[Rfam]
RNA sequence: GCAUUAGUUGGUAUAAAACUAACUUACUAUCUUAGAAAUGAGAUAGCAAAUAAUGAUGAUUGGAUUCUAUGAAUGCGUGAUUAUUAUCCGUAUUCGUUUAGGGCUUGUAACCCCUUUUCGAAUCCUUUCUGAA
Number, nucleotide and partner (000 for none) at each position: 001g000002c000003a000004u000005u000006a000007g000008u000009u000010g000011g000012u000013a000014u000015a000016a000017a000018a000019c000020u000021a000022a000023c000024u049025u048026a000027c000028u045029a044030u043031c042032u041033u040034a000035g000036a000037a000038a000039u000040g033041a032042g031043a030044u029045a028046g000047c000048a025049a024050a000051u000052a000053a000054u000055g000056a000057u000058g000059a000060u000061u000062g000063g000064a000065u000066u000067c000068u000069a000070u000071g000072a094073a093074u000075g091076c090077g089078u083079g000080a000081u000082u000083a078084u000085u000086a000087u000088c000089c077090g076091u075092a000093u073094u072095c000096g000097u000098u000099u000100a116101g115102g114103g000104c000105u000106u000107g000108u000109a000110a000111c000112c000113c000114c102115u101116u100117u000118u000119c000120g000121a000122a000123u000124c000125c000126u000127u000128u000129c000130u000131g000132a000133a000
Shown here is a 133-nucleotide RNA from Onychostoma macrolepis, a member of the family "U8 small nucleolar RNA".
Rfam links the family to the GO terms nucleolus and RNA processing.
A search with the family's covariance model found it, with a score of 51 bits.
The family's RNA type in Rfam is C/D-box small nucleolar RNA.